[Rfam]
Rfam assigns this 52-nucleotide RNA from Jannaschia helgolandensis to the family "ffh sRNA". The base pairs follow the family's consensus structure, which is taken from published work. Rfam classes the family as a small RNA. The literature on the family includes a 2009 paper in BMC Genomics by Meyer et al., "Identification of candidate structured RNAs in the marine organism 'Candidatus Pelagibacter ubique'".
RNA sequence: GAUCAUGGGGAUCGACCUCCGCCAGCGUUGUACGCCCGCGGGGGCGUUUGUG
Dot-bracket structure: ...............(((((((..((((...))))..)))))))........